[Rfam]
RNA sequence: GCAGGAGAGGUUCGAAACCAUCCCUCUAUAAAAAACUAGGGAGAC
Numbered sequence: 001g002c003a004g005g006a007g008a009g010g011u012u013c014g015a016a017a018c019c020a021u022c023c024c025u026c027u028a029u030a031a032a033a034a035a036c037u038a039g040g041g042a043g044a045c
Stems, first nucleotide, its partner, number of pairs: 006027005016037001
RNA: PreQ1 (pre queuosine) riboswitch aptamer
Organism: Lentibacillus populi